[Rfam]
RNA sequence: UAGCUGAGUAGAAGCGGUCAGGAGGCUUGCUCCGGGACAUUGCUCGUCGA
Numbered sequence: 001u002a003g004c005u006g007a008g009u010a011g012a013a014g015c016g017g018u019c020a021g022g023a024g025g026c027u028u029g030c031u032c033c034g035g036g037a038c039a040u041u042g043c044u045c046g047u048c049g050a
Stems, first nucleotide, its partner, number of pairs: 005046006015035001018037002021033004

Record summary
Xanthine riboswitch aptamer (NMT1 RNA): a 50-nucleotide RNA from Pseudomonas sp. OIL-1. The literature on the family includes a 2021 paper in Nucleic Acids Res by Xu et al., "Insights into xanthine riboswitch structure and metal ion-mediated ligand recognition". The match comes from Rfam's covariance-model search (52 bits). NCBI's taxonomy places the organism under Bacteria, Pseudomonadati, Gammaproteobacteria, Pseudomonadaceae, Pseudomonas.